A member of the RNA family "Ribosomal S15 leader" from Erwinia tasmaniensis, 117 nucleotides long. The source organism's lineage runs through Bacteria, Pseudomonadati, Gammaproteobacteria, Enterobacterales and Erwinia. Gene Ontology term of the family: regulation of translation, ncRNA-mediated. Rfam describes the family as follows. The E. coli Ribosomal S15 gene 5' UTR can form two alternative structures. One that is a series of three hairpins, The other includes a pseudoknot. This structure causes translational regulation of the S15 protein. The alignment of this family contains only the final two hairpins which are conserved in other species, and also includes the complete region that forms the alternate structures. It scores 110 bits against the family's covariance model. Pairs were carried over by alignment from the consensus structure, which is taken from published work.

RNA sequence: CUGGGUGGCUGAAUUAGAGAUCGGCGCCUGUACAUUUAUCUUAAAAUUUGGAGUUGUCUCAUGUCUCUAAGUAAUGAAACUAAAGCAAAAAUCGUUGCUGAUUUCGGUCGCGAUGCU
Number, nucleotide and partner (000 for none) at each position: 001c000002u000003g000004g000005g000006u000007g000008g025009c024010u023011g022012a021013a000014u000015u000016a000017g000018a000019g000020a000021u012022c011023g010024g009025c008026g000027c000028c000029u000030g000031u000032a000033c000034a000035u000036u000037u000038a000039u000040c000041u000042u000043a000044a000045a000046a000047u071048u070049u069050g068051g067052a066053g065054u000055u000056g000057u000058c000059u000060c000061a000062u000063g000064u000065c053066u052067c051068u050069a049070a048071g047072u000073a000074a000075u000076g000077a000078a000079a000080c000081u000082a000083a000084a000085g000086c000087a000088a000089a000090a000091a000092u000093c000094g000095u000096u000097g000098c000099u000100g000101a000102u000103u000104u000105c000106g000107g000108u000109c000110g000111c000112g000113a000114u000115g000116c000117u000